[Rfam]
RNA sequence: UAAGCCCUGCAUGUUGCGAAGUCUCUGGUUCCACCUGGGAUACGAAAUCCAAAGAAAUUUCAUAGCAACUGCGGGGCUUC
Dot-bracket structure: .((((((((((..((((...(((((.(((...))).))))).......................)))).)))))))))).
RNA: DUF3800-VIII RNA